The record is a 117-nucleotide sequence from Solanum commersonii, which matches "MIR1919 microRNA precursor family" in Rfam.
Its family is annotated with miRNA-mediated post-transcriptional gene silencing and RISC complex in the Gene Ontology.
Rfam 15.1 lists 17 matches to the family in 5 species.
[Rfam]
RNA sequence: AUCUUCCGGUAGUCCUGUCGCAGAUGACUUUCCCCCUUCUCAUUCAGCCCCUAAACGUAAUUAAUUUGAAUUCAAUGUGGUAGGACGAGAGUCAUCUGUGACAGGAUAAUGGAAGAU
Number, nucleotide and partner (000 for none) at each position: 001a000002u116003c115004u114005u113006c112007c111008g110009g000010u000011a000012g107013u106014c105015c104016u103017g102018u101019c100020g099021c098022a097023g096024a095025u094026g093027a092028c091029u090030u089031u088032c087033c000034c000035c084036c083037u000038u000039c000040u000041c000042a000043u000044u000045c000046a000047g000048c000049c000050c000051c000052u000053a000054a000055a000056c000057g000058u000059a000060a000061u000062u000063a000064a000065u000066u000067u000068g000069a000070a000071u000072u000073c000074a000075a000076u000077g000078u000079g000080g000081u000082a000083g036084g035085a000086c000087g032088a031089g030090a029091g028092u027093c026094a025095u024096c023097u022098g021099u020100g019101a018102c017103a016104g015105g014106a013107u012108a000109a000110u008111g007112g006113a005114a004115g003116a002117u000